RNA: Betaproteobacteria toxic small RNA
RNA sequence: UGUCUCCUCCACCCUCCUCCUUUGGUGUGGACUUGGCGCAGCUCUUCGGGCUGCGUUUUUUUUU
Numbered sequence: 001u002g003u004c005u006c007c008u009c010c011a012c013c014c015u016c017c018u019c020c021u022u023u024g025g026u027g028u029g030g031a032c033u034u035g036g037c038g039c040a041g042c043u044c045u046u047c048g049g050g051c052u053g054c055g056u057u058u059u060u061u062u063u064u
Base pairs, nucleotide, nucleotide: 008031009030010029011028012027013025014024035057036056037055038054039053040052041051042050